[Rfam]
RNA: Group II catalytic intron D1-D4-3
Organism: Bacillus sp. B1-b2
RNA sequence: AUUAUUGCGAGGUAGUGUUUGAAGGAGAUGCGGUGAAUCGAGAGACCCGUAGUUGGAUGAGCAGACCCAAAUGCAUAAGCGUGAAACACAACGGCUGGAUAAGUUGACGACCGUGCGAAGAGAACGGGAAGUCCGGAUACUUUUAUCUGUUCCUUGGCCAAAGUAACCAGUCGACUAAGGAAAUCUUAUCAAGUGAUGGUGUUGGGUAUGUUCAGAAGGAAAGUGCG
Numbered sequence: 001a002u003u004a005u006u007g008c009g010a011g012g013u014a015g016u017g018u019u020u021g022a023a024g025g026a027g028a029u030g031c032g033g034u035g036a037a038u039c040g041a042g043a044g045a046c047c048c049g050u051a052g053u054u055g056g057a058u059g060a061g062c063a064g065a066c067c068c069a070a071a072u073g074c075a076u077a078a079g080c081g082u083g084a085a086a087c088a089c090a091a092c093g094g095c096u097g098g099a100u101a102a103g104u105u106g107a108c109g110a111c112c113g114u115g116c117g118a119a120g121a122g123a124a125c126g127g128g129a130a131g132u133c134c135g136g137a138u139a140c141u142u143u144u145a146u147c148u149g150u151u152c153c154u155u156g157g158c159c160a161a162a163g164u165a166a167c168c169a170g171u172c173g174a175c176u177a178a179g180g181a182a183a184u185c186u187u188a189u190c191a192a193g194u195g196a197u198g199g200u201g202u203u204g205g206g207u208a209u210g211u212u213c214a215g216a217a218g219g220a221a222a223g224u225g226c227g
Stems, first nucleotide, its partner, number of pairs: 001016006046227001048225003053220002058214005064209001065207005086202004094194003098190006106133003111127004